[Rfam]
The family of this 74-nucleotide sequence from Saccharolobus islandicus is "tRNA". By type it is a transfer RNA. It is one of the family's seed sequences. Pairs were carried over by alignment from the consensus structure, which is taken from published work. Its family is annotated with triplet codon-amino acid adaptor activity in the Gene Ontology.
RNA sequence: GCCGCCGUAGCUCAGCCCGGGAGAGCGCCCGGCUGAAGACCGGGUUGUCCGGGGUUCAAGUCCCCGCGGCGGCA
Numbered sequence: 001g002c003c004g005c006c007g008u009a010g011c012u013c014a015g016c017c018c019g020g021g022a023g024a025g026c027g028c029c030c031g032g033c034u035g036a037a038g039a040c041c042g043g044g045u046u047g048u049c050c051g052g053g054g055u056u057c058a059a060g061u062c063c064c065c066g067c068g069g070c071g072g073c074a
Stems, first nucleotide, its partner, number of pairs: 001073007010026004028044005050066005